[Rfam]
This 303-nucleotide sequence from Solanum tuberosum belongs to the Rfam family "Plant signal recognition particle RNA". The source organism's lineage runs through Eukaryota, Streptophyta, Streptophytina, Solanales and Solanum. For this family Rfam cites "Structural and energetic analysis of RNA recognition by a universally conserved protein from the signal recognition particle" (Batey et al., J Mol Biol, 2001).

RNA sequence: GCCGAGCUCAGUAGCGUGAGCUUGUAACCCAAGUGGGGGCAUUAGUGUGAUGGAAUGUUGGGCUGUCCCAGAUGGUUGGGUUUGGUGGGCUAGUGUCUGGCCUGCCCUGUCCAAGCGCAGAGUUGGAUCACGUGGCUCAGUUGAAAGAAUGGGCUGCUUGAUUCCUAAAGAGGGGUGGACUGCGUGAGGCUGGUUUCACAGAGCAACGAACAGCUCCCGCUCUGUGCAGUGGAAGGAUAACGGGUCAGUGCUUACCGAGUCCAGUAACGCCUGAUGGGCUGCUCCAAUUAAACCACCACUUUU
Numbered sequence: 001g002c003c004g005a006g007c008u009c010a011g012u013a014g015c016g017u018g019a020g021c022u023u024g025u026a027a028c029c030c031a032a033g034u035g036g037g038g039g040c041a042u043u044a045g046u047g048u049g050a051u052g053g054a055a056u057g058u059u060g061g062g063c064u065g066u067c068c069c070a071g072a073u074g075g076u077u078g079g080g081u082u083u084g085g086u087g088g089g090c091u092a093g094u095g096u097c098u099g100g101c102c103u104g105c106c107c108u109g110u111c112c113a114a115g116c117g118c119a120g121a122g123u124u125g126g127a128u129c130a131c132g133u134g135g136c137u138c139a140g141u142u143g144a145a146a147g148a149a150u151g152g153g154c155u156g157c158u159u160g161a162u163u164c165c166u167a168a169a170g171a172g173g174g175g176u177g178g179a180c181u182g183c184g185u186g187a188g189g190c191u192g193g194u195u196u197c198a199c200a201g202a203g204c205a206a207c208g209a210a211c212a213g214c215u216c217c218c219g220c221u222c223u224g225u226g227c228a229g230u231g232g233a234a235g236g237a238u239a240a241c242g243g244g245u246c247a248g249u250g251c252u253u254a255c256c257g258a259g260u261c262c263a264g265u266a267a268c269g270c271c272u273g274a275u276g277g278g279c280u281g282c283u284c285c286a287a288u289u290a291a292a293c294c295a296c297c298a299c300u301u302u303u
Stems, first nucleotide, its partner, number of pairs: 001040003004023007028037003044302002047299003051295003056290002058287003061283003065279002068277003074271003078262008087253003091250002097248008106236002110233004115227009125164006132157008141148002165170001172217005181210001183208003190201003
Its family is annotated with signal recognition particle, endoplasmic reticulum targeting and SRP-dependent cotranslational protein targeting to membrane, signal sequence recognition in the Gene Ontology.